[Rfam]
RNA sequence: GGUCGGGUCCUCCGCAACGCCCGGAAGGUGAACCCCGCCAGGCCCGGAAGGGAGCAACGGUAAGCCGGAAGGGCGUGUGCGGUAAGGGUCCGGCCCCU
Numbered sequence: 001g002g003u004c005g006g007g008u009c010c011u012c013c014g015c016a017a018c019g020c021c022c023g024g025a026a027g028g029u030g031a032a033c034c035c036c037g038c039c040a041g042g043c044c045c046g047g048a049a050g051g052g053a054g055c056a057a058c059g060g061u062a063a064g065c066c067g068g069a070a071g072g073g074c075g076u077g078u079g080c081g082g083u084a085a086g087g088g089u090c091c092g093g094c095c096c097c098u
Stems, first nucleotide, its partner, number of pairs: 004092005012082003015077001017076006027066003035060003043052003